[Rfam]
RNA sequence: AUUUUAUAGUAAUCAUUUAUAUCCUGAUGUAUGAAUGUCUAAUCAACAUGUCAGGGCAUAAUCAAAAAGACUCAUCUUAGUAUUAAACGAUAGUUUAAUCAUAGGGUGGAAAAUAAUAUGUAUAAAAGUACUCAGUGAAGAUAUUAUUUUGAAUAGAGAAAUCUAAAGUCUAAACGGUUAUGGCACAUUUUUUAAAUGAAUAUUAGUGUAGUUUUGCUCUUGGGUGACGCAAUAGACGCUCUCAGUGAGAGAAUAACCCUAAAACCUAUAAUAAAUAGAGGUAUUUGUUAUAGUAAGUAGGGAAUACCUAAAUAAGUCAUUUUGCCGUGAAGUUAUGAAAAUAACUAUAACAAGAGAAGAAACUAUGAGUAGCCUAAUACGGCAGACAACAGAUUUAAAACAAAUAUUUAAAAACAAGUCUACUAAUAGGGGUUGUUUGUUUAAAAACAAGUUUUAAUUUAAUUCUGAAUGAUAGGUGAAAGUUAUAGGUGAUAUUCCUAUUAUGGCUUGGGUUUUUAUAAACCAGGGUAAGAACUUAAAGGGUCGCAGCUUUAGGUCAGACUUAUCUUCCAUAUCGCAUAAUAAAUUGCAGUUUAAAAAAUGUAGCUGAUAAAAAAGCAUGUUAAUGAUUACUAUAAA
Numbered sequence: 001a002u003u004u005u006a007u008a009g010u011a012a013u014c015a016u017u018u019a020u021a022u023c024c025u026g027a028u029g030u031a032u033g034a035a036u037g038u039c040u041a042a043u044c045a046a047c048a049u050g051u052c053a054g055g056g057c058a059u060a061a062u063c064a065a066a067a068a069g070a071c072u073c074a075u076c077u078u079a080g081u082a083u084u085a086a087a088c089g090a091u092a093g094u095u096u097a098a099u100c101a102u103a104g105g106g107u108g109g110a111a112a113a114u115a116a117u118a119u120g121u122a123u124a125a126a127a128g129u130a131c132u133c134a135g136u137g138a139a140g141a142u143a144u145u146a147u148u149u150u151g152a153a154u155a156g157a158g159a160a161a162u163c164u165a166a167a168g169u170c171u172a173a174a175c176g177g178u179u180a181u182g183g184c185a186c187a188u189u190u191u192u193u194a195a196a197u198g199a200a201u202a203u204u205a206g207u208g209u210a211g212u213u214u215u216g217c218u219c220u221u222g223g224g225u226g227a228c229g230c231a232a233u234a235g236a237c238g239c240u241c242u243c244a245g246u247g248a249g250a251g252a253a254u255a256a257c258c259c260u261a262a263a264a265c266c267u268a269u270a271a272u273a274a275a276u277a278g279a280g281g282u283a284u285u286u287g288u289u290a291u292a293g294u295a296a297g298u299a300g301g302g303a304a305u306a307c308c309u310a311a312a313u314a315a316g317u318c319a320u321u322u323u324g325c326c327g328u329g330a331a332g333u334u335a336u337g338a339a340a341a342u343a344a345c346u347a348u349a350a351c352a353a354g355a356g357a358a359g360a361a362a363c364u365a366u367g368a369g370u371a372g373c374c375u376a377a378u379a380c381g382g383c384a385g386a387c388a389a390c391a392g393a394u395u396u397a398a399a400a401c402a403a404a405u406a407u408u409u410a411a412a413a414a415c416a417a418g419u420c421u422a423c424u425a426a427u428a429g430g431g432g433u434u435g436u437u438u439g440u441u442u443a444a445a446a447a448c449a450a451g452u453u454u455u456a457a458u459u460u461a462a463u464u465c466u467g468a469a470u471g472a473u474a475g476g477u478g479a480a481a482g483u484u485a486u487a488g489g490u491g492a493u494a495u496u497c498c499u500a501u502u503a504u505g506g507c508u509u510g511g512g513u514u515u516u517u518a519u520a521a522a523c524c525a526g527g528g529u530a531a532g533a534a535c536u537u538a539a540a541g542g543g544u545c546g547c548a549g550c551u552u553u554a555g556g557u558c559a560g561a562c563u564u565a566u567c568u569u570c571c572a573u574a575u576c577g578c579a580u581a582a583u584a585a586a587u588u589g590c591a592g593u594u595u596a597a598a599a600a601a602u603g604u605a606g607c608u609g610a611u612a613a614a615a616a617a618g619c620a621u622g623u624u625a626a627u628g629a630u631u632a633c634u635a636u637a638a639a
Stems, first nucleotide, its partner, number of pairs: 009634001012631001017626001023055005035049004057182006073108006082099007110150010154165004188620001189601005195595002201589002204586001207585001211363004215358001217356006223321006239251004257302005266293004274286002279309004322385005332345005366482001372477005464561004488499002503573003506524001511523001526569003531564002536556001537554005606619003
The family of this 639-nucleotide RNA sequence is "ROOL RNA". About the family: Firmicutes, Fusobacteria (1 example), Tenericutes (1 example). Rfam classes the family as a small RNA.